Overview
Shown here is a 43-nucleotide sequence from Evansella caseinilytica, a member of the family "PreQ1 (pre queuosine) riboswitch aptamer". The match comes from Rfam's covariance-model search (48 bits). Gene Ontology term of the family: queuosine biosynthetic process. The pairing is the family consensus, mapped onto this sequence. On this family, see Jenkins et al., J Biol Chem 2011: "Comparison of a preQ1 riboswitch aptamer in metabolite-bound and free states with implications for gene regulation". Rfam's curators write: This family is a bacterial riboswitch that binds to the metabolite preQ1, an intermediate in the biosynthesis of the modified nucleoside queuosine from GTP. One example of this riboswitch is located in the leader of the Bacillus subtilis ykvJKLM (queCDEF) operon which encodes four genes necessary for queuosine production. PreQ1 binding to the riboswitch aptamer is thought to induce premature transcription termination within the leader to down-regulate expression of these genes. The family has 43 seed sequences and 873 matches in Rfam 15.1.
Nucleotides: 043
Stems, first nucleotide, its partner, number of pairs: 006025005014036002
Number, partner (000 for none) and nucleotide at each position: 001000a002000c003000g004000g005000u006025a007024g008023a009022g010021g011000u012000u013000c014036u015035a016000g017000c018000c019000a020000c021010c022009c023008u024007c025006u026000u027000u028000a029000a030000a031000a032000a033000a034000c035015u036014a037000a038000g039000a040000a041000g042000a043000a